[Rfam]
RNA sequence: AAAACUGUUACCGCAGCUUUUUCUCGUAACAGAAGCCGGGGCUUACGGUAACGAAGCCCCG
Numbered sequence: 001a002a003a004a005c006u007g008u009u010a011c012c013g014c015a016g017c018u019u020u021u022u023c024u025c026g027u028a029a030c031a032g033a034a035g036c037c038g039g040g041g042c043u044u045a046c047g048g049u050a051a052c053g054a055a056g057c058c059c060c061g
Base pairs, nucleotide, nucleotide: 005032006031007030008029009028010027011026013025037061038060039059040058041057042056043055046053047052